[Rfam]
RNA sequence: GGCGGUUCAGUCCGACCCCCCGGGGCUGAACCCUCGGCGACCCCCGCCCUCCCCCUGGCGGGGGUCGCCCCUU
Dot-bracket structure: .(.((((((((((.........))))))))))..)(((((((((((((........)))))))))))))....
6C RNA: a 73-nucleotide sequence from Amycolatopsis methanolica. It is annotated as a cis-regulatory element. It scores 70 bits against the family's covariance model. Rfam links the family to the GO term sporulation. The base pairs follow the family's consensus structure, which is taken from published work.